[Rfam]
Nucleotides: 543
Base pairs, nucleotide, nucleotide: 008535009534010533011532012531013530014529015528016527022521023486024485027457028456029454030453031452032451033450034449036446044107045106046105047104048061049060050059067100068099069098070097071096072095076088077087078086111120112119113118140151141150142149143148158189159187160186161185162184163183169176170175199206200205210237211236212235213234214233221227240440241439242438243437248271249270250269282378283377284376285375292370293369306356307355308354312329314328317326318325332336338350339349340348390411391410392409393408394407395406396405418434419433420432421431422430473480474479
Number, partner (000 for none) and nucleotide at each position: 001000g002000a003000u004000a005000c006000a007000a008535g009534c010533c011532u012531g013530u014529c015528a016527g017000u018000g019000g020000a021000u022521g023486g024485c025000u026000c027457g028456g029454u030453u031452c032451g033450a034449g035000u036446g037000c038000c039000g040000a041000u042000g043000a044107a045106g046105g047104g048061c049060g050059u051000g052000c053000c054000a055000a056000g057000c058000u059050g060049c061048g062000a063000u064000a065000a066000g067100c068099u069098c070097c071096g072095g073000g074000u075000a076088g077087g078086c079000g080000c081000a082000a083000g084000g085000a086078g087077c088076c089000u090000a091000u092000g093000a094000u095072c096071c097070g098069g099068a100067g101000a102000u103000u104047c105046c106045c107044u108000a109000a110000u111120g112119g113118g114000a115000c116000c117000u118113c119112c120111u121000g122000c123000u124000u125000c126000u127000u128000u129000u130000u131000u132000a133000a134000g135000a136000a137000g138000c139000g140151a141150u142149c143148c144000g145000u146000a147000a148143g149142g150141a151140u152000u153000g154000g155000g156000a157000a158189c159187c160186c161185c162184c163183c164000g165000a166000a167000u168000u169176g170175a171000a172000a173000c174000a175170u176169c177000u178000c179000a180000g181000u182000a183163g184162g185161g186160g187159g188000a189158g190000g191000a192000a193000g194000a195000g196000a197000a198000a199206u200205c201000a202000a203000a204000c205200g206199a207000g208000a209000u210237g211236u212235c213234g214233u215000u216000a217000g218000u219000a220000a221227a222000a223000g224000c225000g226000a227221u228000c229000g230000a231000a232000a233214g234213c235212g236211a237210c238000a239000g240440a241439g242438u243437u244000c245000a246000a247000a248271c249270c250269g251000a252000a253000u254000c255000c256000c257000u258000u259000c260000g261000g262000g263000g264000a265000c266000a267000u268000g269250u270249g271248g272000u273000g274000u275000u276000g277000u278000g279000a280000g281000c282378c283377u284376u285375c286000c287000g288000u289000u290000u291000a292370c293369c294000c295000a296000a297000a298000c299000a300000u301000c302000a303000u304000a305000a306356g307355c308354g309000g310000a311000a312329a313000u314328a315000u316000u317326u318325c319000u320000g321000g322000a323000a324000c325318g326317g327000u328314u329312u330000g331000c332336c333000a334000c335000a336332g337000a338350g339349g340348g341000u342000g343000a344000u345000a346000g347000c348340c349339c350338c351000g352000u353000a354308c355307g356306c357000a358000u359000a360000c361000c362000g363000a364000u365000g366000u367000u368000u369293g370292g371000c372000g373000a374000g375285g376284a377283a378282g379000u380000g381000u382000c383000u384000c385000g386000a387000g388000u389000a390411g391410u392409g393408c394407g395406g396405g397000u398000u399000g400000g401000a402000a403000u404000u405396c406395u407394c408393g409392c410391a411390u412000g413000a414000a415000c416000c417000u418434g419433g420432g421431g422430g423000u424000c425000a426000u427000c428000a429000a430422c431421c432420u433419c434418c435000a436000a437243a438242a439241c440240u441000a442000a443000a444000u445000a446036c447000u448000c449034c450033u451032c452031g453030a454029a455000a456028c457027c458000g459000a460000u461000a462000g463000c464000g465000a466000a467000a468000u469000a470000g471000u472000a473480g474479c475000g476000u477000g478000a479474g480473c481000g482000a483000a484000a485024g486023c487000u488000g489000a490000a491000a492000a493000g494000u495000a496000a497000c498000c499000c500000u501000g502000g503000a504000a505000a506000g507000g508000u509000g510000g511000u512000u513000a514000a515000a516000a517000g518000u519000g520000c521022c522000u523000g524000a525000a526000a527016c528015u529014g530013a531012u532011a533010g534009g535008u536000g537000a538000u539000a540000g541000u542000g543000u

Archaeal large subunit ribosomal RNA: a 543-nucleotide part of an RNA from Methanogenium marinum. Lineage of the source: Archaea > Methanobacteriota > Methanomicrobia > Methanomicrobiales > Methanogenium. Pairs were carried over by alignment from the consensus structure, which is taken from published work.